[Rfam]
RNA sequence: CUUUUUAUAGGGGAUGGGGUUCCCCCUUUAACUGCCCGUCGUGGGCUGAUGACUCCUGCCGAUCC
Number, nucleotide and partner (000 for none) at each position: 001c000002u000003u000004u000005u000006u000007a000008u000009a000010g026011g025012g024013g023014a000015u000016g056017g055018g054019g053020u052021u051022c000023c013024c012025c011026c010027u000028u000029u000030a000031a000032c000033u000034g046035c045036c044037c043038g000039u000040c000041g000042u000043g037044g036045g035046c034047u000048g000049a000050u000051g021052a020053c019054u018055c017056c016057u000058g000059c000060c000061g000062a000063u000064c000065c000
Fluoride riboswitch aptamer (crcB RNA motif): a 65-nucleotide RNA from Lichenicola cladoniae. The base pairs follow the family's consensus structure, which is taken from published work.